[Rfam]
RNA sequence: CUGCAAAAAUAGAAAUGUCCAUUCUCCAAUGGACUAGGUGAUCCACACCAGUGUUUCGGACAGCGGUUCGAUUCCGCUCAGCUCCAUAACAAAUCAAUCUUAAGGGGCUGCAAUGGUUUCGACGUGACAACAGGAGGGUGACUGAAGCCUGCUCGGCAUGAGCAAACACAUAAACGCUAACAAAAUCGUUAGUUUCUCCCGUCAGACAGCACCUGUUGCUGCCUGACCCUAUUAAGGGAGAUGGGGUUAGAUCAGCCUUAUCACUCAAAUGAUCUAUGGGACCUGGAAAGGUCC
Numbered sequence: 001c002u003g004c005a006a007a008a009a010u011a012g013a014a015a016u017g018u019c020c021a022u023u024c025u026c027c028a029a030u031g032g033a034c035u036a037g038g039u040g041a042u043c044c045a046c047a048c049c050a051g052u053g054u055u056u057c058g059g060a061c062a063g064c065g066g067u068u069c070g071a072u073u074c075c076g077c078u079c080a081g082c083u084c085c086a087u088a089a090c091a092a093a094u095c096a097a098u099c100u101u102a103a104g105g106g107g108c109u110g111c112a113a114u115g116g117u118u119u120c121g122a123c124g125u126g127a128c129a130a131c132a133g134g135a136g137g138g139u140g141a142c143u144g145a146a147g148c149c150u151g152c153u154c155g156g157c158a159u160g161a162g163c164a165a166a167c168a169c170a171u172a173a174a175c176g177c178u179a180a181c182a183a184a185a186u187c188g189u190u191a192g193u194u195u196c197u198c199c200c201g202u203c204a205g206a207c208a209g210c211a212c213c214u215g216u217u218g219c220u221g222c223c224u225g226a227c228c229c230u231a232u233u234a235a236g237g238g239a240g241a242u243g244g245g246g247u248u249a250g251a252u253c254a255g256c257c258u259u260a261u262c263a264c265u266c267a268a269a270u271g272a273u274c275u276a277u278g279g280g281a282c283c284u285g286g287a288a289a290g291g292u293c294c
Base pairs, nucleotide, nucleotide: 017034018033019032020031021030022029023028037143038142039141041139042138043137044136048134049133052129053128054127055126057124058123062078063077064076065075066074079110080109081108082107083106084105085104150164151163152162153161154160205224208220209219210218211217237266238265240262241261242260243259244258245257246256247255279294280293281292282291283290284289
RNA: Cyanobacteria transfer-messenger RNA